Shown here is a 75-nucleotide sequence from Pseudodesulfovibrio piezophilus, a member of the family "c-di-GMP-I-GGC riboswitch aptamer". On this family, see Weinberg et al., Proc Natl Acad Sci U S A 2017: "Bioinformatic analysis of riboswitch structures uncovers variant classes with altered ligand specificity".

RNA sequence: CGUUACCAAGCCAAACUGGGUGUGAGCCCAGGACGGAAAGCCACGGGUCUCUUGGAGAUAGCCGGGUUGCCAAUU
Numbered sequence: 001c002g003u004u005a006c007c008a009a010g011c012c013a014a015a016c017u018g019g020g021u022g023u024g025a026g027c028c029c030a031g032g033a034c035g036g037a038a039a040g041c042c043a044c045g046g047g048u049c050u051c052u053u054g055g056a057g058a059u060a061g062c063c064g065g066g067u068u069g070c071c072a073a074u075u
Stems, first nucleotide, its partner, number of pairs: 003072001011036002016031006034061001039068004044064003047059003